[Rfam]
Background: The record is a 369-nucleotide RNA sequence from Bacteroides pyogenes, which matches "Bacterial RNase P class A" in Rfam. It scores 235 bits against the family's covariance model.

RNA sequence: GCAGUCGGUCGGUCUGUCGCGUGCACGAUUUCGUGCAGGAGGAAAGUCCGGGCAACACAGAGCGUCCUACUUCCUAACAGAAAGCUAUCCGCGAGGGUAGAGUAACGCAGAAGAAAAAAACCGCCGCUUCUUUCGGGAAGAGGCAAGGGUGAGAAGGUGGGGUAAGAGCCUACCAGCCAGAUGGUGACAUACUGGGCUGUGCGUCUUAGGAGUUGUAAGGUCAUGUAUACCGGCGUUAUGAGAGUUGCUCGCUCCAUGUCGGAGGGUAGACCGCUAAAGUGCCGUGGCAACACGCCACUCAGAUAAAUGACAGACACCUCGUGUCAUCGACAUGAGGAACAGAACCCGGCUUACAGGCUGACUGCUUUU
Numbered sequence: 001g002c003a004g005u006c007g008g009u010c011g012g013u014c015u016g017u018c019g020c021g022u023g024c025a026c027g028a029u030u031u032c033g034u035g036c037a038g039g040a041g042g043a044a045a046g047u048c049c050g051g052g053c054a055a056c057a058c059a060g061a062g063c064g065u066c067c068u069a070c071u072u073c074c075u076a077a078c079a080g081a082a083a084g085c086u087a088u089c090c091g092c093g094a095g096g097g098u099a100g101a102g103u104a105a106c107g108c109a110g111a112a113g114a115a116a117a118a119a120a121c122c123g124c125c126g127c128u129u130c131u132u133u134c135g136g137g138a139a140g141a142g143g144c145a146a147g148g149g150u151g152a153g154a155a156g157g158u159g160g161g162g163u164a165a166g167a168g169c170c171u172a173c174c175a176g177c178c179a180g181a182u183g184g185u186g187a188c189a190u191a192c193u194g195g196g197c198u199g200u201g202c203g204u205c206u207u208a209g210g211a212g213u214u215g216u217a218a219g220g221u222c223a224u225g226u227a228u229a230c231c232g233g234c235g236u237u238a239u240g241a242g243a244g245u246u247g248c249u250c251g252c253u254c255c256a257u258g259u260c261g262g263a264g265g266g267u268a269g270a271c272c273g274c275u276a277a278a279g280u281g282c283c284g285u286g287g288c289a290a291c292a293c294g295c296c297a298c299u300c301a302g303a304u305a306a307a308u309g310a311c312a313g314a315c316a317c318c319u320c321g322u323g324u325c326a327u328c329g330a331c332a333u334g335a336g337g338a339a340c341a342g343a344a345c346c347c348g349g350c351u352u353a354c355a356g357g358c359u360g361a362c363u364g365c366u367u368u369u
Stems, first nucleotide, its partner, number of pairs: 001365010011354001012315007020039001022037006044352003048349005053215004060250004065211005070084003074080001085100001087098004101206002105204005121148002123144003127140005156174006176197001177195004181190003219272004230262005242254004279298003283294004